Overview:
The family of this 63-nucleotide sequence from Drosophila willistoni is "mir-308 microRNA precursor family".
RNA sequence: CUCGCAGUAUAUUUUUGUGUUUUGUUCAAUUUGUCAACUCAAAUCACAGGAUUAUACUGUGAG
Numbered sequence: 001c002u003c004g005c006a007g008u009a010u011a012u013u014u015u016u017g018u019g020u021u022u023u024g025u026u027c028a029a030u031u032u033g034u035c036a037a038c039u040c041a042a043a044u045c046a047c048a049g050g051a052u053u054a055u056a057c058u059g060u061g062a063g
Stems, first nucleotide, its partner, number of pairs: 001063011013051007021043004

A reference for the family is Skalsky et al. (2010), "Identification of microRNAs expressed in two mosquito vectors, Aedes albopictus and Culex quinquefasciatus", BMC Genomics. Its family is annotated with miRNA-mediated post-transcriptional gene silencing and RISC complex in the Gene Ontology.